[Rfam]
RNA sequence: CAAUCAAGUUAGUGAUAAUUUGAUGAAUCAUGAGAAGUCAGCAGACGUCAUAGUAGUUUCCUUUCGGAAAUGAAGGAC
Numbered sequence: 001c002a003a004u005c006a007a008g009u010u011a012g013u014g015a016u017a018a019u020u021u022g023a024u025g026a027a028u029c030a031u032g033a034g035a036a037g038u039c040a041g042c043a044g045a046c047g048u049c050a051u052a053g054u055a056g057u058u059u060c061c062u063u064u065c066g067g068a069a070a071u072g073a074a075g076g077a078c
Base pairs, nucleotide, nucleotide: 001025002024004023005022006021007020008019009018010017011016037046038045039044047078048077049076056071057070058069059068060067061066